[Rfam]
RNA sequence: GACCGGUCGUUGCGAUAGUAAUCCUGCUCAGUACGAGAGGAACCGCAGGUUCGGACACUUGGUACAUGUGCUUGGUCGAGUGACCAGUGGUGCGAAGCUACCAUCCGUGGGAUUAUGACUGAACGCCUCUAAGUCAGAAUCCCGUCUAGUCGCUGCAACGAUACCGUUUGCACCUUGUGUGUCGUUUGGCUACUUUAGCUGGGGCGUACAUCCCCUCCAGAAGGGGGGGACUACCCCGGCGACGAGGCCUGUUCGAUGCGGAGCAUUCUUGGGGAGCGCGAGACUUUUUGUUCCCCGGCUCUGGAUUUGAACCUUUUUGGUGUGAUGCGUGGGUGCCGAAUCGUCUGUAGACGACUUAGGUACUGGUCUGGGUGUCGUAAGUAGUAGAGCAGCCACCAUACUGCGAUCUAUUGAGACUCAUCCUCUGACUGGAAGAUUUGU
Numbered sequence: 001g002a003c004c005g006g007u008c009g010u011u012g013c014g015a016u017a018g019u020a021a022u023c024c025u026g027c028u029c030a031g032u033a034c035g036a037g038a039g040g041a042a043c044c045g046c047a048g049g050u051u052c053g054g055a056c057a058c059u060u061g062g063u064a065c066a067u068g069u070g071c072u073u074g075g076u077c078g079a080g081u082g083a084c085c086a087g088u089g090g091u092g093c094g095a096a097g098c099u100a101c102c103a104u105c106c107g108u109g110g111g112a113u114u115a116u117g118a119c120u121g122a123a124c125g126c127c128u129c130u131a132a133g134u135c136a137g138a139a140u141c142c143c144g145u146c147u148a149g150u151c152g153c154u155g156c157a158a159c160g161a162u163a164c165c166g167u168u169u170g171c172a173c174c175u176u177g178u179g180u181g182u183c184g185u186u187u188g189g190c191u192a193c194u195u196u197a198g199c200u201g202g203g204g205c206g207u208a209c210a211u212c213c214c215c216u217c218c219a220g221a222a223g224g225g226g227g228g229g230a231c232u233a234c235c236c237c238g239g240c241g242a243c244g245a246g247g248c249c250u251g252u253u254c255g256a257u258g259c260g261g262a263g264c265a266u267u268c269u270u271g272g273g274g275a276g277c278g279c280g281a282g283a284c285u286u287u288u289u290g291u292u293c294c295c296c297g298g299c300u301c302u303g304g305a306u307u308u309g310a311a312c313c314u315u316u317u318u319g320g321u322g323u324g325a326u327g328c329g330u331g332g333g334u335g336c337c338g339a340a341u342c343g344u345c346u347g348u349a350g351a352c353g354a355c356u357u358a359g360g361u362a363c364u365g366g367u368c369u370g371g372g373u374g375u376c377g378u379a380a381g382u383a384g385u386a387g388a389g390c391a392g393c394c395a396c397c398a399u400a401c402u403g404c405g406a407u408c409u410a411u412u413g414a415g416a417c418u419c420a421u422c423c424u425c426u427g428a429c430u431g432g433a434a435g436a437u438u439u440g441u
Base pairs, nucleotide, nucleotide: 006162007161008160009159010158011157012156013155016148017147018146021051023049024048025047026046027045052107053106054105055104060100061099062098067094068093069092070091071090072087073086074085075084076083077082109143110142111141116136117135118134119133120132172334173333174332175331338439339438340437341436342435344358347355364431365430366429367428368427370424371423372422374417375416381411382410383409384408386407389404390403391402392401
Source information
Eukaryotic large subunit ribosomal RNA: a 441-nucleotide part of an RNA from Araneus ventricosus. On this family, see Yusupov et al., Science 2001: "Crystal structure of the ribosome at 5.5 A resolution". The family's consensus secondary structure is taken from published work.